The family of this 76-nucleotide sequence from Flavisphingopyxis soli is "Makes More Granules Regulator RNA (mmgR)". It is annotated as a small RNA. Gene Ontology terms of the family: DNA-templated transcription, termination, response to nitrogen compound and protein binding. The organism belongs to Flavisphingopyxis, within Bacteria. A reference for the family is Corbino et al. (2005), "Evidence for a second class of S-adenosylmethionine riboswitches and other regulatory RNA motifs in alpha-proteobacteria", Genome Biol.
[Rfam]
RNA sequence: AGAGCGUGCCUUUUAGGCAUCCUCUCCUAAAACUUUUAUGGGUCGUCCCUCGGGGCGGCCCUUUUUUUUGCUGAUA
Numbered sequence: 001a002g003a004g005c006g007u008g009c010c011u012u013u014u015a016g017g018c019a020u021c022c023u024c025u026c027c028u029a030a031a032a033c034u035u036u037u038a039u040g041g042g043u044c045g046u047c048c049c050u051c052g053g054g055g056c057g058g059c060c061c062u063u064u065u066u067u068u069u070g071c072u073g074a075u076a
Stems, first nucleotide, its partner, number of pairs: 008018004040061009